[Rfam]
RNA sequence: UGAACGUUGACACAUUUGUGAUGCUUUUUGGCAGAUCAUUUGUUGUCUGUGUGGCGUGCAGGAGCCGAAUGUCCCCUCCGGGGGACUUGAGGUCUGGUCCUCUUCCACAACGUUGUACAGAAAUGGGUCCUCCUGGCGGUUCUUUGUCAGAUGAAGGGCCCACCCCUGCAUAUUCCAUAAACUUCUCGUAGUUGCUAUGCAACCAUGACCGAGGAGAUAAGCCAUGCAGUGGACAAUG
Numbered sequence: 001u002g003a004a005c006g007u008u009g010a011c012a013c014a015u016u017u018g019u020g021a022u023g024c025u026u027u028u029u030g031g032c033a034g035a036u037c038a039u040u041u042g043u044u045g046u047c048u049g050u051g052u053g054g055c056g057u058g059c060a061g062g063a064g065c066c067g068a069a070u071g072u073c074c075c076c077u078c079c080g081g082g083g084g085a086c087u088u089g090a091g092g093u094c095u096g097g098u099c100c101u102c103u104u105c106c107a108c109a110a111c112g113u114u115g116u117a118c119a120g121a122a123a124u125g126g127g128u129c130c131u132c133c134u135g136g137c138g139g140u141u142c143u144u145u146g147u148c149a150g151a152u153g154a155a156g157g158g159c160c161c162a163c164c165c166c167u168g169c170a171u172a173u174u175c176c177a178u179a180a181a182c183u184u185c186u187c188g189u190a191g192u193u194g195c196u197a198u199g200c201a202a203c204c205a206u207g208a209c210c211g212a213g214g215a216g217a218u219a220a221g222c223c224a225u226g227c228a229g230u231g232g233a234c235a236a237u238g
Base pairs, nucleotide, nucleotide: 003114004113005112006111007110009047010046011045012044018039019038020037022033023032024031025030051108052107053106054105060101061100062099063098064095066091067088068087166229167228168227169226170225171224182216183215184214185213186212187211191203192202194200195199
The record is a 238-nucleotide RNA from Candidula unifasciata, which matches "Small nucleolar RNA SNORA73 family" in Rfam. The family has 66 seed sequences and 2,326 matches in Rfam 15.1. The base pairs follow the family's consensus structure, which is taken from published work. Rfam's curators write: U17 (SNORA73A and SNORA73B) also known as E1 belongs to the H/ACA class of small nucleolar RNAs (snoRNAs). Gene Ontology terms of the family: nucleolus and RNA processing.